RNA sequence: GGGUAACAUCAAUGUGUUAGAAUGUUUCCUGAUGCAAUCUUCCCACAAAGAAAGCUGCUGCAAUUCCUGCUUAUGAAUCUUCAGCAAGAUCAACAAGUCUCAAGUAGCCAGAUACAUAC
Number, nucleotide and partner (000 for none) at each position: 001g030002g029003g028004u000005a026006a025007c024008a023009u022010c000011a000012a000013u000014g000015u000016g000017u000018u000019a000020g000021a000022a009023u008024g007025u006026u005027u000028c003029c002030u001031g000032a000033u000034g000035c000036a000037a000038u000039c000040u000041u000042c000043c000044c000045a000046c000047a000048a000049a000050g000051a000052a000053a000054g000055c000056u112057g000058c000059u000060g000061c000062a000063a000064u000065u000066c000067c000068u000069g098070c097071u096072u095073a000074u093075g000076a000077a000078u089079c088080u087081u000082c000083a000084g000085c000086a000087a080088g079089a078090u000091c000092a000093a074094c000095a072096a071097g070098u069099c000100u000101c000102a000103a000104g000105u000106a000107g000108c000109c000110a000111g000112a056113u000114a000115c000116a000117u000118a000119c000